[Rfam]
RNA: T-box leader
RNA sequence: CUAAAGGCGAUGACGGGACGAGUACGCCAAUAACCGCACCACAGGAAGGAACGUCGAGACUGAGAGCGUUCUGUGUAGGGUUGGUCGGAAGUUCCUCCCCGAGCAGCCGGCUGAAAAGUUUUUGAGUAGGUCGGUACGGGUAAUCCCGUUACAGAAUCAGAGUGAGUAGGAAUCUGCUAAAGUUGGGUGGUACCGCGGAAGUAUGCUUUCGUCCCUUUU
Numbered sequence: 001c002u003a004a005a006g007g008c009g010a011u012g013a014c015g016g017g018a019c020g021a022g023u024a025c026g027c028c029a030a031u032a033a034c035c036g037c038a039c040c041a042c043a044g045g046a047a048g049g050a051a052c053g054u055c056g057a058g059a060c061u062g063a064g065a066g067c068g069u070u071c072u073g074u075g076u077a078g079g080g081u082u083g084g085u086c087g088g089a090a091g092u093u094c095c096u097c098c099c100c101g102a103g104c105a106g107c108c109g110g111c112u113g114a115a116a117a118g119u120u121u122u123u124g125a126g127u128a129g130g131u132c133g134g135u136a137c138g139g140g141u142a143a144u145c146c147c148g149u150u151a152c153a154g155a156a157u158c159a160g161a162g163u164g165a166g167u168a169g170g171a172a173u174c175u176g177c178u179a180a181a182g183u184u185g186g187g188u189g190g191u192a193c194c195g196c197g198g199a200a201g202u203a204u205g206c207u208u209u210c211g212u213c214c215c216u217u218u219u
Stems, first nucleotide, its partner, number of pairs: 007104002015099004025087002027084004037075003048072006106135007137148003165178005185215003195212005